Source information: The family of this 110-nucleotide RNA from Oribacterium sp. KHPX15 is "drum RNA". The source organism's lineage runs through Bacteria, Bacillota, Clostridia, Lachnospirales and Oribacterium. A search with the family's covariance model found it, with a score of 68 bits. Rfam's curators write: Firmicutes, Bacteroidetes (1 example), Proteobacteria (2 examples), Spirochaetes (2 examples).
[Rfam]
Nucleotides: 110
Base pairs, nucleotide, nucleotide: 003047004046011042012041013040014039015038016037017036018035019034020033021032024080025079026078027077062105063104064103084092085091086090
Number, partner (000 for none) and nucleotide at each position: 001000g002000a003047g004046c005000g006000u007000u008000g009000a010000g011042g012041u013040u014039g015038c016037a017036c018035g019034g020033a021032g022000a023000g024080c025079u026078g027077g028000u029000u030000u031000g032021c033020u034019u035018u036017g037016u038015g039014c040013g041012a042011u043000g044000g045000a046004g047003c048000c049000a050000u051000u052000g053000g054000u055000g056000g057000g058000u059000u060000c061000g062105a063104u064103a065000a066000g067000u068000a069000a070000c071000c072000a073000c074000a075000a076000g077027c078026c079025a080024g081000c082000u083000a084092g085091g086090a087000u088000u089000a090086u091085c092084c093000g094000a095000a096000a097000g098000a099000a100000a101000a102000u103064u104063a105062u106000c107000c108000g109000a110000g